[Rfam]
RNA sequence: UGGGUCGGCAAGACGGUCGCGUCAUGCGUGUUUUUCGAAACACGGAUGCCGAGGAACGUCCGGGCUCCGAAGAGCAGGACGGUGGGUAACACCCACCCGGGGUAACCCGCGAGACAGUGCCACAGAAAGUAGACCGCCGCUGGCUCACGCCGGCGGUAAGGGUGAAACGGUGGUGUAAGAGACCACCAGAGGCCAAGGUGACUUGGUCGGCUUGGUAAACCUCGUCCGGAGCAAGGUCAGACAGAAAACGCUGAGGCUGCUCGCCAAGUUUUCGGGUAGACCGCUAGAGGGCUGCGGCAACGUAGUCCCCAGAUAGAUGACCGUCCAUGGUGUCGUGUUCGCACGAAACCGGGACAGAACCCGGCGUAACAGCUGGCCCAUUCC
Numbered sequence: 001u002g003g004g005u006c007g008g009c010a011a012g013a014c015g016g017u018c019g020c021g022u023c024a025u026g027c028g029u030g031u032u033u034u035u036c037g038a039a040a041c042a043c044g045g046a047u048g049c050c051g052a053g054g055a056a057c058g059u060c061c062g063g064g065c066u067c068c069g070a071a072g073a074g075c076a077g078g079a080c081g082g083u084g085g086g087u088a089a090c091a092c093c094c095a096c097c098c099g100g101g102g103u104a105a106c107c108c109g110c111g112a113g114a115c116a117g118u119g120c121c122a123c124a125g126a127a128a129g130u131a132g133a134c135c136g137c138c139g140c141u142g143g144c145u146c147a148c149g150c151c152g153g154c155g156g157u158a159a160g161g162g163u164g165a166a167a168c169g170g171u172g173g174u175g176u177a178a179g180a181g182a183c184c185a186c187c188a189g190a191g192g193c194c195a196a197g198g199u200g201a202c203u204u205g206g207u208c209g210g211c212u213u214g215g216u217a218a219a220c221c222u223c224g225u226c227c228g229g230a231g232c233a234a235g236g237u238c239a240g241a242c243a244g245a246a247a248a249c250g251c252u253g254a255g256g257c258u259g260c261u262c263g264c265c266a267a268g269u270u271u272u273c274g275g276g277u278a279g280a281c282c283g284c285u286a287g288a289g290g291g292c293u294g295c296g297g298c299a300a301c302g303u304a305g306u307c308c309c310c311a312g313a314u315a316g317a318u319g320a321c322c323g324u325c326c327a328u329g330g331u332g333u334c335g336u337g338u339u340c341g342c343a344c345g346a347a348a349c350c351g352g353g354a355c356a357g358a359a360c361c362c363g364g365c366g367u368a369a370c371a372g373c374u375g376g377c378c379c380a381u382u383c384c
Stems, first nucleotide, its partner, number of pairs: 001380009012325007020051002023048003027044006056367003060364005065231004072262004077227005082096005097111001098109004112222002117220002119216003134161002136157009169187006189211001191208007235282004244273006255265003289308008

A member of the RNA family "Bacterial RNase P class A" from Glaciibacter psychrotolerans, 384 nucleotides long. Its family is annotated with dimeric ribonuclease P complex, tRNA processing and ribonuclease P activity in the Gene Ontology. NCBI's taxonomy places the organism under Bacteria, Bacillati, Actinomycetes, Micrococcales, Glaciibacter. From the family's description: Ribonuclease P (RNase P) is a ubiquitous endoribonuclease, found in archaea, bacteria and eukarya as well as chloroplasts and mitochondria.